Rfam assigns this 46-nucleotide RNA sequence from Acanthisitta chloris to the family "Histone 3' UTR stem-loop".
RNA sequence: UCAAAGGCUCUUUUAAGAGCCACCCACGUAUUCCCUAAAAGAGUUG
Numbered sequence: 001u002c003a004a005a006g007g008c009u010c011u012u013u014u015a016a017g018a019g020c021c022a023c024c025c026a027c028g029u030a031u032u033c034c035c036u037a038a039a040a041g042a043g044u045u046g
Stems, first nucleotide, its partner, number of pairs: 006021006

Rfam's curators write: The mRNAs of metazoan histone genes lack a poly-A tail. 3' end processing occurs at a site between a highly conserved stem-loop (modelled by this family) and a purine rich region around 20 nts downstream (the histone downstream element, or HDE). The stem-loop is bound by a 31 kDa stem-loop binding protein (SLBP - also termed the histone hairpin binding protein, or HBP). Together with U7 snRNA binding of the HDE, SLBP binding nucleate s the formation of the processing complex. The histone 3' UTR stem-loop is also involved in nucleocytoplasmic transport of the mRNA, and in stability regulation and translation efficiency in the cytoplasm.